A member of the RNA family "Lysine riboswitch aptamer" from Amedibacterium intestinale, 169 nucleotides long.

RNA sequence: AAAUCGUAUAGAGGCAGCGAUGCAUCAGAGUAGAAGUGGGAGUUGGCAAACUAUGAAAACUUCGAAAGGUAAUCAUCGCCGAAAACAUAAUUUUGGCAAAAAUUUUGUUUGGGGUUGUGUGGAAAUACCUACAACACUCCUUCAUUCGUGAAGAGGAGCUAUUAACACU
Numbered sequence: 001a002a003a004u005c006g007u008a009u010a011g012a013g014g015c016a017g018c019g020a021u022g023c024a025u026c027a028g029a030g031u032a033g034a035a036g037u038g039g040g041a042g043u044u045g046g047c048a049a050a051c052u053a054u055g056a057a058a059a060c061u062u063c064g065a066a067a068g069g070u071a072a073u074c075a076u077c078g079c080c081g082a083a084a085a086c087a088u089a090a091u092u093u094u095g096g097c098a099a100a101a102a103u104u105u106u107g108u109u110u111g112g113g114g115u116u117g118u119g120u121g122g123a124a125a126u127a128c129c130u131a132c133a134a135c136a137c138u139c140c141u142u143c144a145u146u147c148g149u150g151a152a153g154a155g156g157a158g159c160u161a162u163u164a165a166c167a168c169u
Stems, first nucleotide, its partner, number of pairs: 008162004017079006025071001033063005083110005089104006111138002114135006121128001140153005
The match comes from Rfam's covariance-model search (71 bits).